[Rfam]
Nucleotides: 085
Base pairs, nucleotide, nucleotide: 001085002084003083004082005081012028013027014026015025030073031072032071034068037067039065043060044059045058046057047056
Number, partner (000 for none) and nucleotide at each position: 001085c002084u003083c004082u005081g006000g007000a008000a009000a010000g011000c012028c013027g014026u015025u016000c017000g018000c019000g020000a021000g022000a023000c024000g025015a026014a027013c028012g029000c030073g031072c032071c033000c034068a035000c036000g037067g038000u039065g040000c041000a042000a043060a044059c045058c046057g047056c048000c049000c050000g051000u052000a053000a054000c055000g056047g057046c058045g059044g060043u061000g062000a063000a064000g065039c066000u067037c068034u069000c070000a071032g072031g073030c074000c075000c076000c077000a078000u079000g080000a081005c082004a083003g084002a085001g
Notes
This 85-nucleotide RNA from Actinoplanes missouriensis belongs to the Rfam family "Glycine riboswitch aptamer".